The record is a 183-nucleotide sequence from Secundilactobacillus kimchicus, which matches "Lysine riboswitch aptamer" in Rfam. The family's consensus secondary structure is taken from published work.
RNA sequence: GUAAAUCGAAGAGGUUGCAACCAACAUGAGUCAGUUAGCUGAGUUCCCAUUGCGAACGAGGAAGUUAACCAAAAGGGGCGGUUGCCGAAGCGCUGGCGAGGAUGGUCGUCAGUUCGCUGGGACGUGGUUUAAGAGACCGCGGACUGUCGCGAAGGCUACCUUCGCGGGGCGCUAUCGACAAAA
Numbered sequence: 001g002u003a004a005a006u007c008g009a010a011g012a013g014g015u016u017g018c019a020a021c022c023a024a025c026a027u028g029a030g031u032c033a034g035u036u037a038g039c040u041g042a043g044u045u046c047c048c049a050u051u052g053c054g055a056a057c058g059a060g061g062a063a064g065u066u067a068a069c070c071a072a073a074a075g076g077g078g079c080g081g082u083u084g085c086c087g088a089a090g091c092g093c094u095g096g097c098g099a100g101g102a103u104g105g106u107c108g109u110c111a112g113u114u115c116g117c118u119g120g121g122a123c124g125u126g127g128u129u130u131a132a133g134a135g136a137c138c139g140c141g142g143a144c145u146g147u148c149g150c151g152a153a154g155g156c157u158a159c160c161u162u163c164g165c166g167g168g169g170c171g172c173u174a175u176c177g178a179c180a181a182a183a
Base pairs, nucleotide, nucleotide: 006178007177008176009175010173011172017085018084019083020082021081022080025077034069035068036067037066038065039064040063089118090117091116092115093112094111095110096109097108098107099106119145120144123141124140125139126138127137128136129135147167148166149165150164151163152162153161